[Rfam]
RNA sequence: AGGCAGUGAUGAGGAAUUUGAGAAUGUCAUGCACCACUCUGAUUGAAAAUCUUCGUGCUGAUAAAUUUCUCACACCCAUUUUUCCUUCUGAGCCU
Numbered sequence: 001a002g003g004c005a006g007u008g009a010u011g012a013g014g015a016a017u018u019u020g021a022g023a024a025u026g027u028c029a030u031g032c033a034c035c036a037c038u039c040u041g042a043u044u045g046a047a048a049a050u051c052u053u054c055g056u057g058c059u060g061a062u063a064a065a066u067u068u069c070u071c072a073c074a075c076c077c078a079u080u081u082u083u084c085c086u087u088c089u090g091a092g093c094c095u
Stems, first nucleotide, its partner, number of pairs: 001095004
Shown here is a 95-nucleotide RNA sequence from Punica granatum, a member of the family "Small nucleolar RNA Z221/R21b". The family's RNA type in Rfam is C/D-box small nucleolar RNA. Rfam links the family to the GO terms nucleolus and RNA processing.